mir-172 microRNA precursor family: a 128-nucleotide sequence from Nicotiana sylvestris.
mir-172 has been experimentally verified in Arabidopsis thaliana. This family is thought to target mRNAs coding for APETALA2-like transcription factors.
The family has 11 seed sequences and 2,076 matches in Rfam 15.1.
For this family Rfam cites "Computational Identification of Plant MicroRNAs and Their Targets, Including a Stress-Induced miRNA" (Jones-Rhoades and Bartel, Mol Cell, 2004).
It scores 92 bits against the family's covariance model.
The organism belongs to Nicotiana, within Eukaryota.
[Rfam]
RNA sequence: UUGUUUGCAGAUGUAGCAUCAUCAAGAUUCACAUAAAAAACGCAUGGUGAUGAGCUGAUGAAAUGACAUUAAUGGCCAAGGCAGCUUUCUGAAGGUGAGAAUCUUGAUGAUGCUGCAUCAGCAAUAAA
Numbered sequence: 001u002u003g004u005u006u007g008c009a010g011a012u013g014u015a016g017c018a019u020c021a022u023c024a025a026g027a028u029u030c031a032c033a034u035a036a037a038a039a040a041c042g043c044a045u046g047g048u049g050a051u052g053a054g055c056u057g058a059u060g061a062a063a064u065g066a067c068a069u070u071a072a073u074g075g076c077c078a079a080g081g082c083a084g085c086u087u088u089c090u091g092a093a094g095g096u097g098a099g100a101a102u103c104u105u106g107a108u109g110a111u112g113c114u115g116c117a118u119c120a121g122c123a124a125u126a127a128a
Base pairs, nucleotide, nucleotide: 010119011118012117013116014115015114016113017112018111019110020109021108022107023106024105025104026103027102028101029100030099032097033096